This 71-nucleotide RNA sequence from Allacma fusca belongs to the Rfam family "mir-1000 microRNA precursor family". The family's consensus secondary structure was predicted with RNAalifold. The match comes from Rfam's covariance-model search (69 bits). Taxonomically the source falls in Allacma (Eukaryota, Ecdysozoa, Allotriocarida, Symphypleona).

[Rfam]
RNA sequence: GGCUUGGAUAUUGUCCUGUCACAGCAGUACUGUAUUUCAAGUUACUGAUGUGUCGGGACAUAUCUCAAGCU
Numbered sequence: 001g002g003c004u005u006g007g008a009u010a011u012u013g014u015c016c017u018g019u020c021a022c023a024g025c026a027g028u029a030c031u032g033u034a035u036u037u038c039a040a041g042u043u044a045c046u047g048a049u050g051u052g053u054c055g056g057g058a059c060a061u062a063u064c065u066c067a068a069g070c071u
Stems, first nucleotide, its partner, number of pairs: 003069004012060007022050002025047005